[Rfam]
Bacterial RNase P class A: a 366-nucleotide RNA from Indolivaga capnocytophagoides. By type it is a ribozyme.

RNA sequence: ACAGUCGGGCGGUCUGUCGCUGAGCAUUUUCUUCGGAGAAUGAAAAGAGGAAAGUCCGGGCAACACAGGGCAUCAUAUUUCCUAACGGGAAGCUGUUCGCGAGGGCAGAGUAAGGUAACAGAAAAUAACCGCCCCUAUCGGGGUAAGGGUGAAAAGGUGAGGUAAGAGCUCACCGGUCUUCGUAGCAAUAUGAAGAGCCGUACUACUUAUGAGUUGCAAGACCAUGUAUACCGACGCACGUAGGGCUGCCCGCCCGAUGUCGGGGGGUAGGUCGCUAGAGCCUGAUGGUGACAUCAGGUGUAGAUAAAUGGCAGGCACUCUGCUUUAUGCAGAGUACAGAACCCGGCUUAUAGCCCGACUGUAUUU
Numbered sequence: 001a002c003a004g005u006c007g008g009g010c011g012g013u014c015u016g017u018c019g020c021u022g023a024g025c026a027u028u029u030u031c032u033u034c035g036g037a038g039a040a041u042g043a044a045a046a047g048a049g050g051a052a053a054g055u056c057c058g059g060g061c062a063a064c065a066c067a068g069g070g071c072a073u074c075a076u077a078u079u080u081c082c083u084a085a086c087g088g089g090a091a092g093c094u095g096u097u098c099g100c101g102a103g104g105g106c107a108g109a110g111u112a113a114g115g116u117a118a119c120a121g122a123a124a125a126u127a128a129c130c131g132c133c134c135c136u137a138u139c140g141g142g143g144u145a146a147g148g149g150u151g152a153a154a155a156g157g158u159g160a161g162g163u164a165a166g167a168g169c170u171c172a173c174c175g176g177u178c179u180u181c182g183u184a185g186c187a188a189u190a191u192g193a194a195g196a197g198c199c200g201u202a203c204u205a206c207u208u209a210u211g212a213g214u215u216g217c218a219a220g221a222c223c224a225u226g227u228a229u230a231c232c233g234a235c236g237c238a239c240g241u242a243g244g245g246c247u248g249c250c251c252g253c254c255c256g257a258u259g260u261c262g263g264g265g266g267g268u269a270g271g272u273c274g275c276u277a278g279a280g281c282c283u284g285a286u287g288g289u290g291a292c293a294u295c296a297g298g299u300g301u302a303g304a305u306a307a308a309u310g311g312c313a314g315g316c317a318c319u320c321u322g323c324u325u326u327a328u329g330c331a332g333a334g335u336a337c338a339g340a341a342c343c344c345g346g347c348u349u350a351u352a353g354c355c356c357g358a359c360u361g362u363a364u365u366u
Stems, first nucleotide, its partner, number of pairs: 001362010011351001012316007020047002025042006052349003056346005061216004068251004073212005078092005093108001095106004109207002115203003129148002131144005156174006176198001177196008220273004231263005243255004280299008